A member of the RNA family "small nucleolar RNA snoR135" from Hibiscus syriacus, 142 nucleotides long. The match comes from Rfam's covariance-model search (80 bits). Rfam links the family to the GO terms nucleolus and RNA processing. A reference for the family is Chen and Wu (2009), "Mining small RNA sequencing data: a new approach to identify small nucleolar RNAs in Arabidopsis", Nucleic Acids Res.
[Rfam]
RNA sequence: GGAGCAGGAAUAGUGUGUAUCGAGGUUGUGCAAACUUUCCAGUGCACUCUGUUAGUUUCCUUCAAAAUUGAUUUGGUGAAGGUGGACAGUUGUGCUUCAUAUCUAUAUUUGAUUCUUUUGGACAAUCAUCUUCCCCAUAUUC
Numbered sequence: 001g002g003a004g005c006a007g008g009a010a011u012a013g014u015g016u017g018u019a020u021c022g023a024g025g026u027u028g029u030g031c032a033a034a035c036u037u038u039c040c041a042g043u044g045c046a047c048u049c050u051g052u053u054a055g056u057u058u059c060c061u062u063c064a065a066a067a068u069u070g071a072u073u074u075g076g077u078g079a080a081g082g083u084g085g086a087c088a089g090u091u092g093u094g095c096u097u098c099a100u101a102u103c104u105a106u107a108u109u110u111g112a113u114u115c116u117u118u119u120g121g122a123c124a125a126u127c128a129u130c131u132u133c134c135c136c137a138u139a140u141u142c
Base pairs, nucleotide, nucleotide: 004063006061007060008059009058010057015047016046017045018044019043020042075136076135078133079132080131081130082129083128084127085126089123090122091121